The record is a 318-nucleotide RNA sequence from Urocyon cinereoargenteus, which matches "Nuclear RNase P" in Rfam.
Taxonomically the source falls in Urocyon (Eukaryota, Eumetazoa, Laurasiatheria, Caniformia).
The family's RNA type in Rfam is ribozyme.
RNA sequence: GGCGGCGGGAAGCUCAGCGGUGGGGCCACGCGCGGAGUGCGCGUCACUCUCCCGGCCCCUGGGAAGGUCUGAGACUUGGGCCAGCUGCGGCCCUAGCAGGGCCCUCCCCGCGCGCGGGGGGGUGAGUUCCCAGAGAGCGGGCCCCGGCGAGGGCCUUCGGGCAGGAGAGGCCGCGGGCGCGGCGGAUGCCCCCUCCCCGGGGCUUGGAAUAGACUCACGGCCGGCACGGUGAGUUCAAUGGCUGGGCCGGGGCACCCGUGCUGGCCGGGCAUCGGGCCGCGGGGCUCCGGAACCCAAUUCAGACUACUCUCCCCCGCC
Numbered sequence: 001g002g003c004g005g006c007g008g009g010a011a012g013c014u015c016a017g018c019g020g021u022g023g024g025g026c027c028a029c030g031c032g033c034g035g036a037g038u039g040c041g042c043g044u045c046a047c048u049c050u051c052c053c054g055g056c057c058c059c060u061g062g063g064a065a066g067g068u069c070u071g072a073g074a075c076u077u078g079g080g081c082c083a084g085c086u087g088c089g090g091c092c093c094u095a096g097c098a099g100g101g102c103c104c105u106c107c108c109c110g111c112g113c114g115c116g117g118g119g120g121g122g123u124g125a126g127u128u129c130c131c132a133g134a135g136a137g138c139g140g141g142c143c144c145c146g147g148c149g150a151g152g153g154c155c156u157u158c159g160g161g162c163a164g165g166a167g168a169g170g171c172c173g174c175g176g177g178c179g180c181g182g183c184g185g186a187u188g189c190c191c192c193c194u195c196c197c198c199g200g201g202g203c204u205u206g207g208a209a210u211a212g213a214c215u216c217a218c219g220g221c222c223g224g225c226a227c228g229g230u231g232a233g234u235u236c237a238a239u240g241g242c243u244g245g246g247c248c249g250g251g252g253c254a255c256c257c258g259u260g261c262u263g264g265c266c267g268g269g270c271a272u273c274g275g276g277c278c279g280c281g282g283g284g285c286u287c288c289g290g291a292a293c294c295c296a297a298u299u300c301a302g303a304c305u306a307c308u309c310u311c312c313c314c315c316g317c318c
Stems, first nucleotide, its partner, number of pairs: 001318004008312003013246006022059004035049005069302005079222004089103005104121006122218007141203003247290007